[Rfam]
RNA sequence: GGGCUUGAACCCCGGCGCGACAAUGCCUACCUUUGGAAUGCCCCUCGGGGCUAUGGCGAUAAACGCGCCCGUAAUAAGCGGAUCGGACCCGGGGGCGGUACCCGGCGGCUCCACCAAGCUCCCUCAUUGGCGGGAUCAUGGGGCCGAAACAGGAUCGACGGACGUCUAAAGGGGUUAGCCUUCGCCCGGUGAGCGACCACCGUUAUCGGUGCAAGCAUGAUAGUUGCCAAUGACAACCGUGCUCCGGUGGCCGUUGCUGCGUAAUGCGGUAACCAAACCGAAAACUUGAAGUCCUGUUCCUCUAGCAAGGGCAGGCGGGGUUCGCAGGUACCUGGCAACAGAAACCUGCACU
Numbered sequence: 001g002g003g004c005u006u007g008a009a010c011c012c013c014g015g016c017g018c019g020a021c022a023a024u025g026c027c028u029a030c031c032u033u034u035g036g037a038a039u040g041c042c043c044c045u046c047g048g049g050g051c052u053a054u055g056g057c058g059a060u061a062a063a064c065g066c067g068c069c070c071g072u073a074a075u076a077a078g079c080g081g082a083u084c085g086g087a088c089c090c091g092g093g094g095g096c097g098g099u100a101c102c103c104g105g106c107g108g109c110u111c112c113a114c115c116a117a118g119c120u121c122c123c124u125c126a127u128u129g130g131c132g133g134g135a136u137c138a139u140g141g142g143g144c145c146g147a148a149a150c151a152g153g154a155u156c157g158a159c160g161g162a163c164g165u166c167u168a169a170a171g172g173g174g175u176u177a178g179c180c181u182u183c184g185c186c187c188g189g190u191g192a193g194c195g196a197c198c199a200c201c202g203u204u205a206u207c208g209g210u211g212c213a214a215g216c217a218u219g220a221u222a223g224u225u226g227c228c229a230a231u232g233a234c235a236a237c238c239g240u241g242c243u244c245c246g247g248u249g250g251c252c253g254u255u256g257c258u259g260c261g262u263a264a265u266g267c268g269g270u271a272a273c274c275a276a277a278c279c280g281a282a283a284a285c286u287u288g289a290a291g292u293c294c295u296g297u298u299c300c301u302c303u304a305g306c307a308a309g310g311g312c313a314g315g316c317g318g319g320g321u322u323c324g325c326a327g328g329u330a331c332c333u334g335g336c337a338a339c340a341g342a343a344a345c346c347u348g349c350a351c352u
Stems, first nucleotide, its partner, number of pairs: 040051004055186005065179002067175004079164002083161003089105005106146007187202004193212002196210003318333004324349006
The family of this 352-nucleotide sequence from Rhodovulum adriaticum is "Alphaproteobacteria transfer-messenger RNA".
On this family, see Zwieb et al., Nucleic Acids Res 2003: "tmRDB (tmRNA database)".
The family's consensus secondary structure is taken from published work.
About the family: Bacterial tmRNA, also known as 10Sa RNA or SsrA, is named for its dual tRNA and mRNA-like properties. Its role is to liberate the mRNA from a stalled ribosome. To accomplish this part of the tmRNA is used as a reading frame that ends in a translation stop signal. The broken mRNA is replaced in the ribosome by the tmRNA and translation of the tmRNA leads to addition of a proteolysis tag to the incomplete protein enabling recognition by a protease. Recently a number of permuted tmRNA genes have been found encoded in two parts. tmRNAs have been identified in eubacteria and some chloroplasts but are absent from archaeal and eukaryote nuclear genomes.
Rfam classes the family as a non-coding RNA gene.